[Rfam]
RNA sequence: UACUGGCUGUGACUACACUGACUUGGACACUUGGCCUUUUGCGGGUUUGAGAGGUAAGCGUCGCGGCCUGCUUCCAGGCUACCCUGAUUUUGGUUCGUGGCUCCUCCUGACCCUGAGAACCUCUGUCGCCUCAGAUCAGAACCGUCGUCGCGUUUCGGGCUACAGCCUGUUGCUGGACUCUGUGAGACACCUGACCGACCGCUGAGCGACUGACUGGUCCACAGCGCCGGCAAGAUGAAGUUCACUGUGGUGGCGGCGGCGCUGCUG
Numbered sequence: 001u002a003c004u005g006g007c008u009g010u011g012a013c014u015a016c017a018c019u020g021a022c023u024u025g026g027a028c029a030c031u032u033g034g035c036c037u038u039u040u041g042c043g044g045g046u047u048u049g050a051g052a053g054g055u056a057a058g059c060g061u062c063g064c065g066g067c068c069u070g071c072u073u074c075c076a077g078g079c080u081a082c083c084c085u086g087a088u089u090u091u092g093g094u095u096c097g098u099g100g101c102u103c104c105u106c107c108u109g110a111c112c113c114u115g116a117g118a119a120c121c122u123c124u125g126u127c128g129c130c131u132c133a134g135a136u137c138a139g140a141a142c143c144g145u146c147g148u149c150g151c152g153u154u155u156c157g158g159g160c161u162a163c164a165g166c167c168u169g170u171u172g173c174u175g176g177a178c179u180c181u182g183u184g185a186g187a188c189a190c191c192u193g194a195c196c197g198a199c200c201g202c203u204g205a206g207c208g209a210c211u212g213a214c215u216g217g218u219c220c221a222c223a224g225c226g227c228c229g230g231c232a233a234g235a236u237g238a239a240g241u242u243c244a245c246u247g248u249g250g251u252g253g254c255g256g257c258g259g260c261g262c263u264g265c266u267g
Base pairs, nucleotide, nucleotide: 004256006254007253008252009251016159018158019157020156031118032117033112034111058103060101061100062099063098064097065096066095163175164174165173166172
RNA: bip internal ribosome entry site (IRES)